[Rfam]
RNA sequence: AUGAUGUAUGAUGAAGUAAAUCAGACGGAUUCCCAUUGAUUUUAUUCAAAAUAUGAUGUCACAACCGACUCUUCUUACUCAU
Numbered sequence: 001a002u003g004a005u006g007u008a009u010g011a012u013g014a015a016g017u018a019a020a021u022c023a024g025a026c027g028g029a030u031u032c033c034c035a036u037u038g039a040u041u042u043u044a045u046u047c048a049a050a051a052u053a054u055g056a057u058g059u060c061a062c063a064a065c066c067g068a069c070u071c072u073u074c075u076u077a078c079u080c081a082u
Stems, first nucleotide, its partner, number of pairs: 001082004006078001
A member of the RNA family "Small nucleolar RNA R12" from Tripterygium wilfordii, 82 nucleotides long. For this family Rfam cites "The high diversity of snoRNAs in plants: identification and comparative study of 120 snoRNA genes from Oryza sativa" (Chen et al., Nucleic Acids Res, 2003).